[Rfam]
RNA sequence: CCUAGUGCUCCGGGGUCGGUGCAAUUCCGAACCGGCGGUGACAGUCCGCGACCCGACCGCAGCCGGCGGCCGGUUGAACCGGUGUAAUUCCGGUACCGACGGUGAAAGUCCGGAUGGUAGGCAGCACUGAA
Numbered sequence: 001c002c003u004a005g006u007g008c009u010c011c012g013g014g015g016u017c018g019g020u021g022c023a024a025u026u027c028c029g030a031a032c033c034g035g036c037g038g039u040g041a042c043a044g045u046c047c048g049c050g051a052c053c054c055g056a057c058c059g060c061a062g063c064c065g066g067c068g069g070c071c072g073g074u075u076g077a078a079c080c081g082g083u084g085u086a087a088u089u090c091c092g093g094u095a096c097c098g099a100c101g102g103u104g105a106a107a108g109u110c111c112g113g114a115u116g117g118u119a120g121g122c123a124g125c126a127c128u129g130a131a
Base pairs, nucleotide, nucleotide: 003129004128005127006126007125008124009123010120017029018028019027031109032108033098034097035049036048037047038046044096045095053073054072078094079093080092081091082090100112101111102110
RNA: FMN riboswitch aptamer (RFN element)